Overview: The record is a 350-nucleotide sequence from Jannaschia aquimarina, which matches "Alphaproteobacteria transfer-messenger RNA" in Rfam. The source organism's lineage runs through Bacteria, Pseudomonadati, Alphaproteobacteria, Roseobacteraceae and Jannaschia. The family is grouped with related families in Rfam's "tRNA clan".
RNA sequence: UGGCUUGAUCCGAACCCCGCUGCCGCCUACAUUCAAACAGUCUCUCAAGGGACUAUGGCGAUAAACGCGCCCGUAAUAAGCGGAUCGGACCCGGGGGCGGUACCCGGCGGCUCCACCAAAUUCCUUCGUUGGGGGAUCAGGGGGCCGAAACAGGAUCGACGGACGUCUAAAGGGGUUAGCUUUCGCCCGGUGAGAUACCACCGUUAUCGGUUCAAGCUUUAUAGUUGCCAACGACAACAAAGCUCCGGUUGCGCUGGCUGCGUAAGCAGUCCGCAAGACCAAAACCUAAGUCCUUGCGCCUAGCCGCGUAAGGCGGGGUUCGCAGGCACCUGGCAACAGAAGCCUGCACU
Dot-bracket structure: .......................................(((((....)))))...(((((.....((((((........((..(((...(((((.......)))))(((((((..........................)))))))............))).)).......))))..))..)))))((((..[[.[[[)))).....]]]]]......................................................................................................[[[[..((((((]]]]..........))))))...
The base pairs follow the family's consensus structure, which is taken from published work.